[Rfam]
mir-22 microRNA precursor family: an 84-nucleotide RNA from Saguinus labiatus. Rfam links the family to the GO terms miRNA-mediated post-transcriptional gene silencing and RISC complex. The family's consensus secondary structure was predicted with RNAalifold. The source organism's lineage runs through Eukaryota, Euteleostomi, Theria, Platyrrhini and Saguinus. Rfam's curators put it in the seed alignment.
RNA sequence: GGCUGAGCCGCAGUAGUUCUUCAGUGGCAAGCUUUAUGUCCUGACCCCGCUAAAGCUGCCAGUUGAAGAACUGUUGCCCUCUGC
Numbered sequence: 001g002g003c004u005g006a007g008c009c010g011c012a013g014u015a016g017u018u019c020u021u022c023a024g025u026g027g028c029a030a031g032c033u034u035u036a037u038g039u040c041c042u043g044a045c046c047c048c049g050c051u052a053a054a055g056c057u058g059c060c061a062g063u064u065g066a067a068g069a070a071c072u073g074u075u076g077c078c079c080u081c082u083g084c
Stems, first nucleotide, its partner, number of pairs: 005081003010077003017070006026060003030057007
A reference for the family is Lagos-Quintana et al. (2001), "Identification of novel genes coding for small expressed RNAs", Science.